[Rfam]
RNA sequence: CAUUAAAAUAAAUAAUUCUCUCAUAUAAUAGCGGGGAUAUGGCCUGCAAGUUUCUACCCAAAGACCGAAUAAAUUUUUGGACUAUGAGAGAAAGCGGACCUCAC
Number, nucleotide and partner (000 for none) at each position: 001c000002a000003u000004u000005a000006a000007a000008a000009u000010a000011a000012a000013u000014a000015a000016u000017u000018c090019u089020c088021u087022c086023a085024u084025a083026u000027a000028a000029u049030a000031g047032c046033g045034g044035g043036g000037a000038u000039a000040u000041g000042g000043c035044c034045u033046g032047c031048a000049a029050g000051u000052u000053u000054c000055u000056a000057c000058c080059c079060a078061a077062a076063g075064a074065c000066c000067g000068a000069a000070u000071a000072a000073a000074u064075u063076u062077u061078u060079g059080g058081a000082c000083u025084a024085u023086g022087a021088g020089a019090g018091a000092a000093a000094g000095c000096g000097g000098a000099c000100c000101u000102c000103a000104c000
The family of this 104-nucleotide RNA from Bacillus sp. FJAT-27986 is "Purine riboswitch aptamer". The family's consensus secondary structure is taken from published work. The match comes from Rfam's covariance-model search (81 bits). Its family is annotated with purine nucleobase biosynthetic process in the Gene Ontology. The source organism's lineage runs through Bacteria, Bacillota, Caryophanales, Bacillaceae and Bacillus.